[Rfam]
RNA: Mu-gpT-DE RNA
RNA sequence: CCCUGACAGUCAUAUUGAAUGGCUGACACUAGCCACGACAGGAGAUACAAAUG
Numbered sequence: 001c002c003c004u005g006a007c008a009g010u011c012a013u014a015u016u017g018a019a020u021g022g023c024u025g026a027c028a029c030u031a032g033c034c035a036c037g038a039c040a041g042g043a044g045a046u047a048c049a050a051a052u053g
Stems, first nucleotide, its partner, number of pairs: 002042004007025005